[Rfam]
RNA sequence: GAGUCUAAGUAGAAGCCAUCCGCUUCUCACCUUGCAACGCAUUAGCAGUUCGUAAGGUUAUGACAGCAUGUAUGAUUAUGCUUUUGUUGCGGGUGGUAUUUAUACCAUCCGUUUUUAUUUAUAUGU
Number, nucleotide and partner (000 for none) at each position: 001g000002a000003g000004u000005c000006u000007a000008a000009g000010u000011a027012g026013a025014a024015g023016c022017c000018a000019u000020c000021c000022g016023c015024u014025u013026c012027u011028c000029a058030c057031c056032u000033u000034g000035c000036a050037a049038c048039g046040c045041a000042u000043u000044a000045g040046c039047a000048g038049u037050u036051c000052g000053u000054a000055a000056g031057g030058u029059u000060a000061u000062g000063a000064c000065a000066g000067c000068a000069u000070g000071u000072a000073u000074g000075a000076u000077u000078a000079u000080g000081c000082u000083u000084u000085u000086g000087u000088u000089g112090c111091g110092g109093g108094u107095g106096g105097u104098a000099u000100u000101u000102a000103u000104a097105c096106c095107a094108u093109c092110c091111g090112u089113u000114u000115u000116u000117a000118u000119u000120u000121a000122u000123a000124u000125g000126u000